[Rfam]
RNA sequence: GAUAUAGCAUGCGGGAGCUUGCGGAAGCAGGCUGAGAGUACGGCUAUAUUCCGCCGUUGACCGUUUGAACCUGUUUGGGUAAUGCCAGCGCAGGGAAAGUGAGGAUGGGGCCG
Numbered sequence: 001g002a003u004a005u006a007g008c009a010u011g012c013g014g015g016a017g018c019u020u021g022c023g024g025a026a027g028c029a030g031g032c033u034g035a036g037a038g039u040a041c042g043g044c045u046a047u048a049u050u051c052c053g054c055c056g057u058u059g060a061c062c063g064u065u066u067g068a069a070c071c072u073g074u075u076u077g078g079g080u081a082a083u084g085c086c087a088g089c090g091c092a093g094g095g096a097a098a099g100u101g102a103g104g105a106u107g108g109g110g111c112c113g
Stems, first nucleotide, its partner, number of pairs: 007100002010097001011064004016058001017032005040057004070094004075088004
Rfam assigns this 113-nucleotide RNA sequence from Parageobacillus caldoxylosilyticus to the family "TPP riboswitch aptamer (THI element)". The source organism's lineage runs through Bacteria, Bacillati, Caryophanales, Anoxybacillaceae and Parageobacillus caldoxylosilyticus. The match comes from Rfam's covariance-model search (56 bits). Rfam links the family to the GO term thiamine pyrophosphate binding. The family's consensus secondary structure is taken from published work.